[Rfam]
The record is a 171-nucleotide RNA sequence from Chitinophaga caeni, which matches "Group II catalytic intron D1-D4-3" in Rfam.
Lineage of the source: Bacteria > Pseudomonadati > Bacteroidota > Chitinophagaceae > Chitinophaga.
Pairs were carried over by alignment from the consensus structure.
RNA sequence: UUUACUGCGAAGUAAAAUCUGAAGGAAGCGGCGGGCAAAAUUGUGAGCUGACGAACAGGAACAGGAUACAAGGCUUACUCAUUGGGUAAACUGGCAUUAGACAGUGAAGCCCCAUAGUUAGACGUAAACAUGAGGUAGUAAAUCCUGCAGCUUACAAGGUAGGAAUAAUGA
Numbered sequence: 001u002u003u004a005c006u007g008c009g010a011a012g013u014a015a016a017a018u019c020u021g022a023a024g025g026a027a028g029c030g031g032c033g034g035g036c037a038a039a040a041u042u043g044u045g046a047g048c049u050g051a052c053g054a055a056c057a058g059g060a061a062c063a064g065g066a067u068a069c070a071a072g073g074c075u076u077a078c079u080c081a082u083u084g085g086g087u088a089a090a091c092u093g094g095c096a097u098u099a100g101a102c103a104g105u106g107a108a109g110c111c112c113c114a115u116a117g118u119u120a121g122a123c124g125u126a127a128a129c130a131u132g133a134g135g136u137a138g139u140a141a142a143u144c145c146u147g148c149a150g151c152u153u154a155c156a157a158g159g160u161a162g163g164a165a166u167a168a169u170g171a
Stems, first nucleotide, its partner, number of pairs: 001016006029170002036163001041157010062147006073139003078134005084112004090105004